[Rfam]
RNA sequence: CUGGGAAAGACAGUGAUGCUGUGGUUCCAAGCACAUAUCUGAAUUGUGUGUGUGUGGAUGGCACUGAAACUGAGUCUUUUCUGU
Numbered sequence: 001c002u003g004g005g006a007a008a009g010a011c012a013g014u015g016a017u018g019c020u021g022u023g024g025u026u027c028c029a030a031g032c033a034c035a036u037a038u039c040u041g042a043a044u045u046g047u048g049u050g051u052g053u054g055u056g057g058a059u060g061g062c063a064c065u066g067a068a069a070c071u072g073a074g075u076c077u078u079u080u081c082u083g084u
Stems, first nucleotide, its partner, number of pairs: 002083005008077004

Small nucleolar RNA SNORD121A: an 84-nucleotide RNA sequence from Vicugna pacos.
The family's consensus secondary structure was predicted with WAR.
Taxonomically the source falls in Vicugna (Eukaryota, Vertebrata, Sarcopterygii, Mammalia).
The family has 26 seed sequences and 881 matches in Rfam 15.1.